The family of this 127-nucleotide RNA from Hemibagrus wyckioides is "Small nucleolar RNA SNORA65". The base pairs follow the family's consensus structure, which was predicted with RNAalifold. The family is grouped with related families in Rfam's "SNORA65 clan". Taxonomically the source falls in Hemibagrus (Eukaryota, Metazoa, Bilateria, Deuterostomia). U65 belongs to the H/ACA class of snoRNAs which are thought to guide the sites of modification of uridines to pseudouridines.
Nucleotides: 127
Base pairs, nucleotide, nucleotide: 006046007045008044009043018034019033020030021028022027062120063119064118065117066115067114069112071109072108076105077104078103079102080101084097085096086095
Number, partner (000 for none) and nucleotide at each position: 001000u002000c003000u004000g005000c006046c007045a008044c009043u010000a011000u012000g013000c014000u015000a016000g017000u018034c019033u020030g021028u022027a023000u024000g025000a026000g027022u028021g029000a030020c031000u032000u033019g034018g035000u036000a037000u038000a039000a040000u041000c042000c043009a044008g045007u046006g047000a048000a049000g050000g051000c052000u053000g054000a055000g056000a057000g058000a059000a060000a061000c062120c063119c064118a065117g066115c067114u068000c069112u070000a071109g072108g073000a074000a075000g076105c077104a078103g079102g080101g081000c082000u083000g084097c085096u086095c087000a088000a089000a090000c091000u092000g093000a094000u095086g096085g097084g098000u099000a100000a101080c102079u103078c104077u105076g106000u107000g108072c109071c110000g111000a112069a113000a114067g115066g116000c117065c118064u119063g120062g121000g122000a123000c124000a125000c126000a127000c